Overview:
A member of the RNA family "Bacterial small subunit ribosomal RNA" from Sodalis endosymbiont of Henestaris halophilus, 570 nucleotides of a longer RNA. Taxonomically the source falls in Sodalis (Bacteria, Pseudomonadota, Gammaproteobacteria, Enterobacterales). Gene Ontology terms of the family: ribosome and structural constituent of ribosome.
RNA sequence: UAAUUGAAGAGUUUGAUCAUGGCUCAGAUUGAACGCUGGCGGCAGGCCUAACACAUGCAAGUCGAGCGGCAACGAAAAGAAACUUAGUUUCUUUGUCGGCGAGCGGCGAACGGGUGAGUAAUAUCUGGGAAUCUGCCCGAUGGAGGGGGAUAACUACUGGAAACGGUAGCUAAUACCGCGUAACGUCGCGAGACCAAAGUGGGGGACCAUCUAUGGCCUCACACCAUCGGAUGAGCCCAGAUGGGAUUAGCUAGUAGGUGAGGUAAUAGCUCACCUAGGCAACGAUCCCUAGCUGGUCUGAGAGGAUAACCAGCCACACUGGAACUGAGACACGGUCCAGACUCCUACGGGAGGCAGCAGUGGGGAAUAUUGCACAAUGGGGGAAACCCUGAUGCAGCCAUGCCGCGUGUGUGAAGAAGGCCUUAGGGUUGUAAAGCACUUUCGGCGGAGAAGAAGACAAUGGUUGUUAAUAGCACCAUUGGUUGACGUUAACCGCAGAAGAAGCACCGGCUAACUCCGUGCCAGCAGCCGCGGUAAUACGGAGGGUGCGAGCGUUAAUCGGAAUUACUG
Numbered sequence: 001u002a003a004u005u006g007a008a009g010a011g012u013u014u015g016a017u018c019a020u021g022g023c024u025c026a027g028a029u030u031g032a033a034c035g036c037u038g039g040c041g042g043c044a045g046g047c048c049u050a051a052c053a054c055a056u057g058c059a060a061g062u063c064g065a066g067c068g069g070c071a072a073c074g075a076a077a078a079g080a081a082a083c084u085u086a087g088u089u090u091c092u093u094u095g096u097c098g099g100c101g102a103g104c105g106g107c108g109a110a111c112g113g114g115u116g117a118g119u120a121a122u123a124u125c126u127g128g129g130a131a132u133c134u135g136c137c138c139g140a141u142g143g144a145g146g147g148g149g150a151u152a153a154c155u156a157c158u159g160g161a162a163a164c165g166g167u168a169g170c171u172a173a174u175a176c177c178g179c180g181u182a183a184c185g186u187c188g189c190g191a192g193a194c195c196a197a198a199g200u201g202g203g204g205g206a207c208c209a210u211c212u213a214u215g216g217c218c219u220c221a222c223a224c225c226a227u228c229g230g231a232u233g234a235g236c237c238c239a240g241a242u243g244g245g246a247u248u249a250g251c252u253a254g255u256a257g258g259u260g261a262g263g264u265a266a267u268a269g270c271u272c273a274c275c276u277a278g279g280c281a282a283c284g285a286u287c288c289c290u291a292g293c294u295g296g297u298c299u300g301a302g303a304g305g306a307u308a309a310c311c312a313g314c315c316a317c318a319c320u321g322g323a324a325c326u327g328a329g330a331c332a333c334g335g336u337c338c339a340g341a342c343u344c345c346u347a348c349g350g351g352a353g354g355c356a357g358c359a360g361u362g363g364g365g366a367a368u369a370u371u372g373c374a375c376a377a378u379g380g381g382g383g384a385a386a387c388c389c390u391g392a393u394g395c396a397g398c399c400a401u402g403c404c405g406c407g408u409g410u411g412u413g414a415a416g417a418a419g420g421c422c423u424u425a426g427g428g429u430u431g432u433a434a435a436g437c438a439c440u441u442u443c444g445g446c447g448g449a450g451a452a453g454a455a456g457a458c459a460a461u462g463g464u465u466g467u468u469a470a471u472a473g474c475a476c477c478a479u480u481g482g483u484u485g486a487c488g489u490u491a492a493c494c495g496c497a498g499a500a501g502a503a504g505c506a507c508c509g510g511c512u513a514a515c516u517c518c519g520u521g522c523c524a525g526c527a528g529c530c531g532c533g534g535u536a537a538u539a540c541g542g543a544g545g546g547u548g549c550g551a552g553c554g555u556u557a558a559u560c561g562g563a564a565u566u567a568c569u570g
Stems, first nucleotide, its partner, number of pairs: 009025005027560004032556006039406006045399002047364001052362003056359003061107003066104002069100002077093007114317003123242007132234002137230007145179001147177002154169006185194003199222006243289003250280003255277008292314004296307004319340005342353004370396001372395003378391005409439004419430004443501001445496004453487001458481007504549005515544005525532002